[Rfam]
RNA: Small nucleolar RNA SNORA51
Organism: Ictidomys tridecemlineatus
RNA sequence: GGCCUCCUGGGUACUUACCAAAGGCUGUGUCCUUACACUGACUAUACAGAAAAAGAGGCAGAUUAAACCUAUCCUAUAUACAACUCAGUCCAGGCCCUAUGCCUGAUCUGUACUGUGAAUGGGGGUGG
Numbered sequence: 001g002g003c004c005u006c007c008u009g010g011g012u013a014c015u016u017a018c019c020a021a022a023g024g025c026u027g028u029g030u031c032c033u034u035a036c037a038c039u040g041a042c043u044a045u046a047c048a049g050a051a052a053a054a055g056a057g058g059c060a061g062a063u064u065a066a067a068c069c070u071a072u073c074c075u076a077u078a079u080a081c082a083a084c085u086c087a088g089u090c091c092a093g094g095c096c097c098u099a100u101g102c103c104u105g106a107u108c109u110g111u112a113c114u115g116u117g118a119a120u121g122g123g124g125g126u127g128g
Stems, first nucleotide, its partner, number of pairs: 002059005008053001022043002027038004072124006086110003091105005